[Rfam]
RNA: Small nucleolar RNA SNORA57
RNA sequence: CCUUCAUUUCUUGGCAGGGAUGGGGCUUGCGGUCCUGGUCCCCGUAAUGCAGGGAGUAGAGGGAAAGAGGUAAGGCUCUGGCCCCCUUGGCAUCAUGUCUUCGGUACCGGCGGCUUCUAGUCUGCCGGUUCUAUCCUCAAGAGCCAGGACACGG
Numbered sequence: 001c002c003u004u005c006a007u008u009u010c011u012u013g014g015c016a017g018g019g020a021u022g023g024g025g026c027u028u029g030c031g032g033u034c035c036u037g038g039u040c041c042c043c044g045u046a047a048u049g050c051a052g053g054g055a056g057u058a059g060a061g062g063g064a065a066a067g068a069g070g071u072a073a074g075g076c077u078c079u080g081g082c083c084c085c086c087u088u089g090g091c092a093u094c095a096u097g098u099c100u101u102c103g104g105u106a107c108c109g110g111c112g113g114c115u116u117c118u119a120g121u122c123u124g125c126c127g128g129u130u131c132u133a134u135c136c137u138c139a140a141g142a143g144c145c146a147g148g149a150c151a152c153g154g
Stems, first nucleotide, its partner, number of pairs: 001062001002056004015044001017042004023036003088146004093141001107128007